The record is a 190-nucleotide RNA sequence from Vagococcus teuberi, which matches "6S / SsrS RNA" in Rfam. E. coli 6S RNA was the first non coding RNA to be sequenced, but its function was unknown until recently. It consists of 184 nucleotides that fold into an extended hairpin structure with a large single-stranded internal bulge. The base pairs follow the family's consensus structure, which is taken from published work. Rfam 15.1 lists 5,006 matches to the family in 4,638 species. The match comes from Rfam's covariance-model search (57 bits).
[Rfam]
Nucleotides: 190
Base pairs, nucleotide, nucleotide: 002188003187004186005185006184007183008182009181010180012177013176014175015174017173018172033158034157035155037153038152039151040149041148061130062129063128065126066125067124074119075118078115079114080113086107087106091103092102
Number, partner (000 for none) and nucleotide at each position: 001000a002188g003187a004186u005185a006184u007183c008182u009181g010180u011000g012177a013176u014175g015174u016000a017173c018172g019000c020000a021000g022000u023000a024000u025000c026000c027000c028000c029000a030000u031000u032000a033158g034157u035155g036000u037153u038152g039151a040149c041148c042000g043000a044000a045000c046000a047000a048000a049000u050000c051000g052000u053000u054000u055000u056000a057000c058000u059000u060000u061130g062129g063128g064000a065126a066125u067124c068000a069000a070000c071000g072000a073000g074119u075118a076000u077000u078115u079114a080113u081000u082000a083000a084000a085000a086107a087106c088000a089000g090000g091103c092102c093000u094000u095000u096000u097000c098000a099000u100000u101000u102092g103091g104000u105000a106087g107086u108000u109000u110000g111000a112000g113080g114079u115078a116000u117000u118075u119074a120000c121000a122000g123000c124067g125066a126065u127000u128063c129062c130061c131000a132000c133000c134000u135000g136000c137000a138000u139000u140000u141000u142000u143000u144000a145000g146000c147000g148041g149040g150000u151039u152038c153037a154000a155035c156000c157034a158033u159000c160000a161000g162000g163000g164000a165000u166000a167000c168000a169000a170000a171000a172018c173017g174015g175014c176013a177012u178000c179000g180010a181009c182008g183007g184006a185005u186004a187003u188002u189000u190000u